[Rfam]
RNA: let-7 microRNA precursor family
RNA sequence: UAAGGUUGAGGUAGUAGAUUGAAUAGUUGUGGGGCUUAGCCUCCUUCUGAAAUAACUACACAAUCUACUGUCUUUCCUGG
Numbered sequence: 001u002a003a004g005g006u007u008g009a010g011g012u013a014g015u016a017g018a019u020u021g022a023a024u025a026g027u028u029g030u031g032g033g034g035c036u037u038a039g040c041c042u043c044c045u046u047c048u049g050a051a052a053u054a055a056c057u058a059c060a061c062a063a064u065c066u067a068c069u070g071u072c073u074u075u076c077c078u079g080g
Base pairs, nucleotide, nucleotide: 001080003078004077005076008074009073010072011071012070013069014068015067016066017065018064019063020062021061024058025057026056027055032042033041034040035039045050